Overview
Shown here is a 148-nucleotide RNA sequence, a member of the family "xerDC RNA". It is annotated as a cis-regulatory element. It is one of the family's seed sequences.

[Rfam]
RNA sequence: GAUCCGUAGCCGGGCGGAUCAAACGACACACGCGGUCGGUGGCAGACGCUGCCCUCCGCAGCCGAGUUCAGCGGUUGUGUCAGCAGUCGUCGUCGAAGCAAGCUACUCCGGUGACAGGGUUUAUCCCCAUACUGCGUUCGUACUGACC
Number, nucleotide and partner (000 for none) at each position: 001g020002a019003u018004c017005c016006g015007u014008a000009g000010c000011c000012g000013g000014g007015c006016g005017g004018a003019u002020c001021a000022a000023a000024c000025g081026a080027c079028a078029c077030a076031c000032g059033c058034g057035g056036u000037c000038g000039g000040u000041g000042g000043c000044a000045g000046a000047c000048g000049c000050u000051g000052c000053c000054c000055u000056c035057c034058g033059c032060a000061g075062c074063c073064g072065a000066g000067u000068u000069c000070a000071g000072c064073g063074g062075u061076u030077g029078u028079g027080u026081c025082a000083g135084c134085a133086g132087u131088c000089g115090u114091c113092g112093u111094c110095g109096a000097a000098g000099c000100a000101a000102g000103c000104u000105a000106c000107u000108c000109c095110g094111g093112u092113g091114a090115c089116a000117g127118g000119g125120u000121u000122u000123a000124u000125c119126c000127c117128c000129a000130u000131a087132c086133u085134g084135c083136g000137u000138u000139c000140g000141u000142a000143c000144u000145g000146a000147c000148c000